[Rfam]
RNA sequence: CCGUGGGCUGACGCCCACGGCUAAGUGAUGACGCCGCUCCGCGGCU
Numbered sequence: 001c002c003g004u005g006g007g008c009u010g011a012c013g014c015c016c017a018c019g020g021c022u023a024a025g026u027g028a029u030g031a032c033g034c035c036g037c038u039c040c041g042c043g044g045c046u
Stems, first nucleotide, its partner, number of pairs: 001020008033045005
This 46-nucleotide sequence from Lacipirellula limnantheis belongs to the Rfam family "Acido-Lenti-1 RNA". The organism belongs to Lacipirellula, within Bacteria. By type it is a small RNA.